[Rfam]
RNA sequence: GCUGGGACCAGUUGGGACUGGUCAUGGGCAAAAGAAAUAUUUUUUUGUCCACUGUUGCAGUCUUCCUAGAGCAAAGUGGAGGUCUCUGUCUGCUUUAGGACAGCCAACUAAAUCAGAUCGUUCCCCUCCUUACACG
Numbered sequence: 001g002c003u004g005g006g007a008c009c010a011g012u013u014g015g016g017a018c019u020g021g022u023c024a025u026g027g028g029c030a031a032a033a034g035a036a037a038u039a040u041u042u043u044u045u046u047g048u049c050c051a052c053u054g055u056u057g058c059a060g061u062c063u064u065c066c067u068a069g070a071g072c073a074a075a076g077u078g079g080a081g082g083u084c085u086c087u088g089u090c091u092g093c094u095u096u097a098g099g100a101c102a103g104c105c106a107a108c109u110a111a112a113u114c115a116g117a118u119c120g121u122u123c124c125c126c127u128c129c130u131u132a133c134a135c136g
Base pairs, nucleotide, nucleotide: 004066005065006064009060011058012057025051026050027049028048029047034044035043036042078129079128080127081126082125086120088118089117090116092114094112095111096110097109098108
RNA: Small Cajal body specific RNA 3